MIR396 microRNA precursor family: a 112-nucleotide RNA sequence from Camellia sinensis. It scores 92 bits against the family's covariance model. Pairs were carried over by alignment from the consensus structure, which was predicted with WAR.
[Rfam]
RNA sequence: UGCCAUGCUUUUCCACAGCUUUCUUGAACUUCCAUAUCUAUUGUUCUGAAUUUUGUUUUCUAGAAAUAGAUCAACUGUGGAAGCUCAAGAAAGCUGUGGGAAGACAUGGCAG
Numbered sequence: 001u002g003c004c005a006u007g008c009u010u011u012u013c014c015a016c017a018g019c020u021u022u023c024u025u026g027a028a029c030u031u032c033c034a035u036a037u038c039u040a041u042u043g044u045u046c047u048g049a050a051u052u053u054u055g056u057u058u059u060c061u062a063g064a065a066a067u068a069g070a071u072c073a074a075c076u077g078u079g080g081a082a083g084c085u086c087a088a089g090a091a092a093g094c095u096g097u098g099g100g101a102a103g104a105c106a107u108g109g110c111a112g
Stems, first nucleotide, its partner, number of pairs: 003109005013099003017095006024088004029083005
Dot-bracket structure: ..(((((.....(((.((((((.((((.(((((.............................................))))).)))).)))))).))).....)))))...